A member of the RNA family "Transposase-2 RNA", 69 nucleotides long. Rfam 15.1 lists 214 matches to the family in 110 species. Rfam classes the family as a small RNA.

RNA sequence: GAAGUGCGAACCAAGCGUGCGCCCCGGCGCUGUAAGACUUGGAGCGGACGAGCGCAAGCACGUCCUACA
Numbered sequence: 001g002a003a004g005u006g007c008g009a010a011c012c013a014a015g016c017g018u019g020c021g022c023c024c025c026g027g028c029g030c031u032g033u034a035a036g037a038c039u040u041g042g043a044g045c046g047g048a049c050g051a052g053c054g055c056a057a058g059c060a061c062g063u064c065c066u067a068c069a
Base pairs, nucleotide, nucleotide: 011042012041013040014039015038019030020029021028022027046065047064048063049062050061052059053058